[Rfam]
RNA sequence: UGACUUUUUCUAAAGUCAAACUUCUUUAAGUUUGACCAAAUUUAUAAAAAACAUAGCAACAUUUUUAACAAAAAAACAAAUACGUACUAUCAAAAUAUAUUCAAUGUUCGAUUUAAUAAAACUAAUUUGGUAUUGUAGAUCUUGUUACUGUUUUCAAUAAACUUGAUCAAACUUAAAUAAGUUUGACUUAGGAAAAGAGUCA
Numbered sequence: 001u002g003a004c005u006u007u008u009u010c011u012a013a014a015g016u017c018a019a020a021c022u023u024c025u026u027u028a029a030g031u032u033u034g035a036c037c038a039a040a041u042u043u044a045u046a047a048a049a050a051a052c053a054u055a056g057c058a059a060c061a062u063u064u065u066u067a068a069c070a071a072a073a074a075a076a077c078a079a080a081u082a083c084g085u086a087c088u089a090u091c092a093a094a095a096u097a098u099a100u101u102c103a104a105u106g107u108u109c110g111a112u113u114u115a116a117u118a119a120a121a122c123u124a125a126u127u128u129g130g131u132a133u134u135g136u137a138g139a140u141c142u143u144g145u146u147a148c149u150g151u152u153u154u155c156a157a158u159a160a161a162c163u164u165g166a167u168c169a170a171a172c173u174u175a176a177a178u179a180a181g182u183u184u185g186a187c188u189u190a191g192g193a194a195a196a197g198a199g200u201c202a
Base pairs, nucleotide, nucleotide: 005197006196007195008194009193011191013189014188015187016186017185018184019183020182021181022180023179025177026176031171032170033169034168035167045157048154049153050152051151052150054147055146056145058143059142061140062139063138064137066135067134069129070128071127072126
Dot-bracket structure: ....(((((.(.(((((((((((.((....(((((.........(..(((((.(((.((.((((.((.((((.....................................................))))....)).)))).)).)))..)))))..).........)))))....)).))))))))))).).))))).....